The record is a 168-nucleotide RNA sequence from Bacillus sp. T33-2, which matches "glmS glucosamine-6-phosphate activated ribozyme aptamer" in Rfam. The base pairs follow the family's consensus structure, which is taken from published work. The organism belongs to Bacillus, within Bacteria. It scores 134 bits against the family's covariance model. Rfam classes the family as a riboswitch.
RNA sequence: UGAAUAUCUAAAGCGCCUGGACUAGUCCCGAACGGCAGGGAUUAGUUGACGAGGAGGAGGUUUAUCGAAUGUUCGGCGGAUGCCUCCCGGCUGAAAGAGCACAGCCGCAAAUCCUUGCUUUAAAACAUUGGGGCAACUCAAUGCACAAAGAGAAGGGAAUGCUUAAAA
Numbered sequence: 001u002g003a004a005u006a007u008c009u010a011a012a013g014c015g016c017c018u019g020g021a022c023u024a025g026u027c028c029c030g031a032a033c034g035g036c037a038g039g040g041a042u043u044a045g046u047u048g049a050c051g052a053g054g055a056g057g058a059g060g061u062u063u064a065u066c067g068a069a070u071g072u073u074c075g076g077c078g079g080a081u082g083c084c085u086c087c088c089g090g091c092u093g094a095a096a097g098a099g100c101a102c103a104g105c106c107g108c109a110a111a112u113c114c115u116u117g118c119u120u121u122a123a124a125a126c127a128u129u130g131g132g133g134c135a136a137c138u139c140a141a142u143g144c145a146c147a148a149a150g151a152g153a154a155g156g157g158a159a160u161g162c163u164u165a166a167a168a
Stems, first nucleotide, its partner, number of pairs: 020047008029038001056087005065076004088107006112158005118152001126143007